Record summary:
The family of this 131-nucleotide RNA from Mesocricetus auratus is "Small nucleolar RNA SNORA71". By type it is an H/ACA-box small nucleolar RNA. The base pairs follow the family's consensus structure, which was predicted with PFOLD. It scores 76 bits against the family's covariance model. Rfam 15.1 lists 1,805 matches to the family in 606 species. A reference for the family is Ganot et al. (1997), "The family of box ACA small nucleolar RNAs is defined by an evolutionarily conserved secondary structure and ubiquitous sequence elements essential for RNA accumulation", Genes Dev. Its family is annotated with nucleolus and RNA processing in the Gene Ontology. The source organism's lineage runs through Eukaryota, Chordata, Teleostomi, Cricetidae and Mesocricetus.

RNA sequence: CCCUGUAUCCGAAAGUGAUCUUAGCUGCCUGUGCUCUGGUCAUUGGUAGUCCAGGGAAAGGAUGCUGAAAGACUUGUUCCUGGAUUUGGGGUGUCUGUCCUGACCCCUCAAAAGCCUGGAGCCUUCCUACA
Numbered sequence: 001c002c003c004u005g006u007a008u009c010c011g012a013a014a015g016u017g018a019u020c021u022u023a024g025c026u027g028c029c030u031g032u033g034c035u036c037u038g039g040u041c042a043u044u045g046g047u048a049g050u051c052c053a054g055g056g057a058a059a060g061g062a063u064g065c066u067g068a069a070a071g072a073c074u075u076g077u078u079c080c081u082g083g084a085u086u087u088g089g090g091g092u093g094u095c096u097g098u099c100c101u102g103a104c105c106c107c108u109c110a111a112a113a114g115c116c117u118g119g120a121g122c123c124u125u126c127c128u129a130c131a
Stems, first nucleotide, its partner, number of pairs: 001056005007050002014044007023035003064128001067126003071122001085113003089108003093104001